This 129-nucleotide RNA sequence from Chinchilla lanigera belongs to the Rfam family "Small nucleolar RNA SNORA25".
Its family is annotated with RNA processing and nucleolus in the Gene Ontology.
From the family's description: ACA25 is a member of the H/ACA class of snoRNA that guide the sites of modification of uridines to pseudouridines.
NCBI's taxonomy places the organism under Eukaryota, Teleostomi, Theria, Rodentia, Chinchilla.
RNA sequence: UGAUUUCUCUAAAGAGGCUGUGUUGGGGCUGUGAAACCAAGAACUCUUAACACUGUAACCAAAGAUUGAAGUUCUCCACAGGAUGCUGAGUCAUUCAAUAGUAAUGUAUGUUCCUGGGGAGAUCUAAAA
Numbered sequence: 001u002g003a004u005u006u007c008u009c010u011a012a013a014g015a016g017g018c019u020g021u022g023u024u025g026g027g028g029c030u031g032u033g034a035a036a037c038c039a040a041g042a043a044c045u046c047u048u049a050a051c052a053c054u055g056u057a058a059c060c061a062a063a064g065a066u067u068g069a070a071g072u073u074c075u076c077c078a079c080a081g082g083a084u085g086c087u088g089a090g091u092c093a094u095u096c097a098a099u100a101g102u103a104a105u106g107u108a109u110g111u112u113c114c115u116g117g118g119g120a121g122a123u124c125u126a127a128a129a
Base pairs, nucleotide, nucleotide: 002060004058005057007055014048015047016046017045019043021041024040027038028037073122074121075120076119077118080115081114082113083112088107090105091104093102094101095100